RNA sequence: GCUGGGACGAGUCGCGCCGUCCUGUGAUCCGAGCUUUCGGAGGUUGGGUGGUGAGGACUACUCCUCUCUUGCGGGAGCCUGGAGGUUCAUGUUGAUAUCUCGUCCGCCUUGAGCUGGGAUUCGCCUACACGCUCUCACCGGAAGGAGGGAAUGUGCAGGCGUUAGAGCGCGGGGGAACGCGUUAGGCGGGAAACCGAGCAGCGAAGACCCUCCGAUCGCGGCAGCAAGGGGAUAGCGAGCUUGAGUGAUGCCUUCAGAUCACUGCCUCAAGUUCGAGUCGCAGGACCAUCACCUUU
Numbered sequence: 001g002c003u004g005g006g007a008c009g010a011g012u013c014g015c016g017c018c019g020u021c022c023u024g025u026g027a028u029c030c031g032a033g034c035u036u037u038c039g040g041a042g043g044u045u046g047g048g049u050g051g052u053g054a055g056g057a058c059u060a061c062u063c064c065u066c067u068c069u070u071g072c073g074g075g076a077g078c079c080u081g082g083a084g085g086u087u088c089a090u091g092u093u094g095a096u097a098u099c100u101c102g103u104c105c106g107c108c109u110u111g112a113g114c115u116g117g118g119a120u121u122c123g124c125c126u127a128c129a130c131g132c133u134c135u136c137a138c139c140g141g142a143a144g145g146a147g148g149g150a151a152u153g154u155g156c157a158g159g160c161g162u163u164a165g166a167g168c169g170c171g172g173g174g175g176a177a178c179g180c181g182u183u184a185g186g187c188g189g190g191a192a193a194c195c196g197a198g199c200a201g202c203g204a205a206g207a208c209c210c211u212c213c214g215a216u217c218g219c220g221g222c223a224g225c226a227a228g229g230g231g232a233u234a235g236c237g238a239g240c241u242u243g244a245g246u247g248a249u250g251c252c253u254u255c256a257g258a259u260c261a262c263u264g265c266c267u268c269a270a271g272u273u274c275g276a277g278u279c280g281c282a283g284g285a286c287c288a289u290c291a292c293c294u295u296u
Base pairs, nucleotide, nucleotide: 001044002043003042004023005022006021007020008019009018028041029040030039046294047293048292049291050290051289052288053287058283059282061280064275068271069270070269071268072264073263074262076259078257080256081255082254083253084252087248088247089246090245092243097241099239100238101237102236103235104231105230107229108228109227110226111225113222114221115220116219118217119216120215121214122161123160124159125158126157128155129154130153131152133150134149135148136147138145139144162166169212171210172209173208180203181202182201187196188195189194